Rfam assigns this 92-nucleotide sequence from Penicillium rubens to the family "A. fumigatus snoRNA Afu_263". Rfam's curators put it in the seed alignment. For this family Rfam cites "Small ncRNA transcriptome analysis from Aspergillus fumigatus suggests a novel mechanism for regulation of protein synthesis" (Jochl et al., Nucleic Acids Res, 2008). Rfam links the family to the GO terms nucleolus and RNA processing.
RNA sequence: UUUUGUGAUGAACAAACAAUAUUUAAAGCAUAGUUCACCUGAGAUCUUCGGAUUGUUGAACGAAAACAUAUUCCAUCUUUCAUUUUCUGAUC
Numbered sequence: 001u002u003u004u005g006u007g008a009u010g011a012a013c014a015a016a017c018a019a020u021a022u023u024u025a026a027a028g029c030a031u032a033g034u035u036c037a038c039c040u041g042a043g044a045u046c047u048u049c050g051g052a053u054u055g056u057u058g059a060a061c062g063a064a065a066a067c068a069u070a071u072u073c074c075a076u077c078u079u080u081c082a083u084u085u086u087c088u089g090a091u092c
Base pairs, nucleotide, nucleotide: 006021007020009018010017033061034060035059036058037057043054044053045052046051